[Rfam]
RNA sequence: AGCUUUGUGCAGUGGCAGUAUCGUAGCCAAUGUUUAUCUGAGGGACGAUUAUUGCUAAUUGAAAACUUUUCCCAAUACCCCGCCAUGACGACUUGCAAUAUAGUCGGCGUCGACAAUUUUUGACAGUCUGUAUAGGGA
Numbered sequence: 001a002g003c004u005u006u007g008u009g010c011a012g013u014g015g016c017a018g019u020a021u022c023g024u025a026g027c028c029a030a031u032g033u034u035u036a037u038c039u040g041a042g043g044g045a046c047g048a049u050u051a052u053u054g055c056u057a058a059u060u061g062a063a064a065a066c067u068u069u070u071c072c073c074a075a076u077a078c079c080c081c082g083c084c085a086u087g088a089c090g091a092c093u094u095g096c097a098a099u100a101u102a103g104u105c106g107g108c109g110u111c112g113a114c115a116a117u118u119u120u121u122g123a124c125a126g127u128c129u130g131u132a133u134a135g136g137g138a
Stems, first nucleotide, its partner, number of pairs: 020049005027043002032038001082114001084112001085110003089106005127138003
The family of this 138-nucleotide RNA sequence from Callithrix jacchus is "U4 spliceosomal RNA". The literature on the family includes a 1997 paper in Nucleic Acids Res by Zwieb, "The uRNA database". It is annotated as a spliceosomal small nuclear RNA. The family's consensus secondary structure is taken from published work.